Plastid-psbA-3 3UTR RNA: a 57-nucleotide RNA from Solanum commersonii. Plastid psbA-3 is a non-coding RNA (ncRNA) present in plastids. It was identified in inverted repeat sequences in the 3 prime untranslate region (3UTR) of photosystem II quinone-binding protein (psbA). The family's RNA type in Rfam is cis-regulatory element. Lineage of the source: Eukaryota > Embryophyta > asterids > Solanales > Solanum. It scores 67 bits against the family's covariance model.
[Rfam]
RNA sequence: AAAGGAGCAAUAAUAAUUUUCUUGUUCUAUCAAGAAGGUGCUAUUGCUCCUUCUUUG
Numbered sequence: 001a002a003a004g005g006a007g008c009a010a011u012a013a014u015a016a017u018u019u020u021c022u023u024g025u026u027c028u029a030u031c032a033a034g035a036a037g038g039u040g041c042u043a044u045u046g047c048u049c050c051u052u053c054u055u056u057g
Stems, first nucleotide, its partner, number of pairs: 002052011014040001019036006